[Rfam]
RNA: tRNA
RNA sequence: GAACGGUUAGCUCAGUUGGUUAGAGCACCGGCACGGAACGCGGGAGGUCGUGGGUUCGAGUCCCGCAUCGUUCA
Numbered sequence: 001g002a003a004c005g006g007u008u009a010g011c012u013c014a015g016u017u018g019g020u021u022a023g024a025g026c027a028c029c030g031g032c033a034c035g036g037a038a039c040g041c042g043g044g045a046g047g048u049c050g051u052g053g054g055u056u057c058g059a060g061u062c063c064c065g066c067a068u069c070g071u072u073c074a
Base pairs, nucleotide, nucleotide: 001073002072003071004070005069006068007067010026011025012024013023028044029043031041032040050066051065052064053063054062